DUF3800-V RNA: a 96-nucleotide RNA. Pairs were carried over by alignment from the consensus structure, which is taken from published work. The family's RNA type in Rfam is small RNA.

RNA sequence: UGGAGUUGGUAUUAACAUACUAGUUUGUGCUUGAGUUAUCACGAGUGGUACACUCGUUAUCAGCUUGAGAACCCCACAGCUAGCACUGCCGCUCUA
Numbered sequence: 001u002g003g004a005g006u007u008g009g010u011a012u013u014a015a016c017a018u019a020c021u022a023g024u025u026u027g028u029g030c031u032u033g034a035g036u037u038a039u040c041a042c043g044a045g046u047g048g049u050a051c052a053c054u055c056g057u058u059a060u061c062a063g064c065u066u067g068a069g070a071a072c073c074c075c076a077c078a079g080c081u082a083g084c085a086c087u088g089c090c091g092c093u094c095u096a
Stems, first nucleotide, its partner, number of pairs: 001096006009089002025079005030069007041057006
Dot-bracket structure: ((((((..((..............((((((((((((....((((((.....)))))).....))))))).....)))))........)).))))))